[Rfam]
RNA sequence: UGGGCCUCAAGUAAAAACAUUGUCAAAAGCACAAGAGAUACUCUCUUGUGCUUUUGACAAUGUUUUUACUUGAGGCCCAAUUCACAUGU
Dot-bracket structure: ....((((((((..((((((((.(((.((((((.((.......)).)))))))).).))))))))..))))))))..............
Rfam assigns this 89-nucleotide RNA sequence from Hucho hucho to the family "mir-210 microRNA precursor family". Its family is annotated with miRNA-mediated post-transcriptional gene silencing and RISC complex in the Gene Ontology. The match comes from Rfam's covariance-model search (50 bits). The family's consensus secondary structure was predicted with WAR.